This 70-nucleotide RNA sequence from Aotus nancymaae belongs to the Rfam family "mir-1256 microRNA precursor family".
Pairs were carried over by alignment from the consensus structure, which was predicted with RNAalifold.
NCBI's taxonomy places the organism under Eukaryota, Tetrapoda, Euarchontoglires, Platyrrhini, Aotus.
A search with the family's covariance model found it, with a score of 74 bits.

RNA sequence: UGAUGCCAGGCAUUGAGUUCUCAGUAGCUAUGAAAGUACUAGCUACAGAGAAGUCAAUCUAUGACAUCUU
Numbered sequence: 001u002g003a004u005g006c007c008a009g010g011c012a013u014u015g016a017g018u019u020c021u022c023a024g025u026a027g028c029u030a031u032g033a034a035a036g037u038a039c040u041a042g043c044u045a046c047a048g049a050g051a052a053g054u055c056a057a058u059c060u061a062u063g064a065c066a067u068c069u070u
Stems, first nucleotide, its partner, number of pairs: 002068004007063002010060001012058005018052005025045006033037001